[Rfam]
Nucleotides: 128
Stems, first nucleotide, its partner, number of pairs: 011038001016034006067121006080108002083101004
Number, partner (000 for none) and nucleotide at each position: 001000c002000a003000g004000c005000a006000u007000g008000u009000u010000u011038c012000c013000a014000a015000g016034g017033g018032c019031u020030g021029u022000g023000g024000c025000u026000g027000g028000g029021g030020u031019g032018g033017c034016c035000a036000c037000a038011g039000g040000a041000u042000c043000u044000c045000c046000a047000a048000c049000u050000g051000c052000a053000u054000g055000c056000a057000a058000g059000a060000g061000c062000a063000a064000c065000c066000u067121g068120g069119a070118g071117a072116g073000a074000c075000u076000g077000a078000u079000a080108g081107c082000u083101c084100a085099g086098g087000u088000c089000a090000a091000c092000c093000c094000a095000a096000u097000a098086c099085c100084u101083g102000u103000g104000g105000c106000u107081g108080c109000c110000g111000c112000u113000c114000a115000c116072c117071u118070u119069u120068c121067u122000u123000a124000u125000u126000u127000u128000u